[Rfam]
RNA sequence: AAGUGUUGCAGCUAUUGUAGAAUUUGUCUAGCAGGUUUUCUGGUCCUCACCUGAUGACCCCC
Numbered sequence: 001a002a003g004u005g006u007u008g009c010a011g012c013u014a015u016u017g018u019a020g021a022a023u024u025u026g027u028c029u030a031g032c033a034g035g036u037u038u039u040c041u042g043g044u045c046c047u048c049a050c051c052u053g054a055u056g057a058c059c060c061c062c
Base pairs, nucleotide, nucleotide: 034059035058036057037056039054040053042051043050044049

The family of this 62-nucleotide sequence from Prolemur simus is "U7 small nuclear RNA". Animal histone pre-mRNAs are spliced by a different mechanism than nuclear pre-mRNAs and self-splicing introns. Taxonomically the source falls in Prolemur (Eukaryota, Opisthokonta, Vertebrata, Amniota). Pairs were carried over by alignment from the consensus structure, which was predicted with PFOLD. The family has 49 seed sequences and 10,439 matches in Rfam 15.1.